Rfam assigns this 130-nucleotide sequence from Camellia sinensis to the family "MIR168 microRNA precursor family".
A search with the family's covariance model found it, with a score of 108 bits.
The organism belongs to Camellia, within Eukaryota.
On this family, see Rhoades et al., Cell 2002: "Prediction of plant microRNA targets".
Gene Ontology terms of the family: miRNA-mediated post-transcriptional gene silencing and RISC complex.
The family has 10 seed sequences and 518 matches in Rfam 15.1.
RNA sequence: GUUGCGGCGGACUCUAAUUCGCUUGGUGCAGGUCGGGAACUACUUCGCCGGCGGCGACGAUUGAUUCUGAUUGAUUCGGGGGCGAAUCGGGUCCCGCCUUGCAUCAACUGAAUCGGAGACCGCCGUGAAU
Numbered sequence: 001g002u003u004g005c006g007g008c009g010g011a012c013u014c015u016a017a018u019u020c021g022c023u024u025g026g027u028g029c030a031g032g033u034c035g036g037g038a039a040c041u042a043c044u045u046c047g048c049c050g051g052c053g054g055c056g057a058c059g060a061u062u063g064a065u066u067c068u069g070a071u072u073g074a075u076u077c078g079g080g081g082g083c084g085a086a087u088c089g090g091g092u093c094c095c096g097c098c099u100u101g102c103a104u105c106a107a108c109u110g111a112a113u114c115g116g117a118g119a120c121c122g123c124c125g126u127g128a129a130u
Stems, first nucleotide, its partner, number of pairs: 013117002017113004023107010034096005040090002